[Rfam]
RNA sequence: UCAAGUAAUGAUUGUCCAAACGCAAUUCUUGAUGAAUUUGAAAAUUCAAGGAUUGAGUGGGGACAUCAGGUCUUGU
Dot-bracket structure: .((((...((((.((((...(.(((((((((...............))))))))).)...))))))))...)))).
Numbered sequence: 001u002c003a004a005g006u007a008a009u010g011a012u013u014g015u016c017c018a019a020a021c022g023c024a025a026u027u028c029u030u031g032a033u034g035a036a037u038u039u040g041a042a043a044a045u046u047c048a049a050g051g052a053u054u055g056a057g058u059g060g061g062g063a064c065a066u067c068a069g070g071u072c073u074u075g076u
Stems, first nucleotide, its partner, number of pairs: 002075004009068004014064004021057001023055009
Overview
Shown here is a 76-nucleotide RNA from Diaphorina citri, a member of the family "mir-219 microRNA precursor family". Its family is annotated with RISC complex and miRNA-mediated post-transcriptional gene silencing in the Gene Ontology. The family's consensus secondary structure was predicted with RNAalifold. On this family, see Lim et al., Science 2003: "Vertebrate microRNA genes".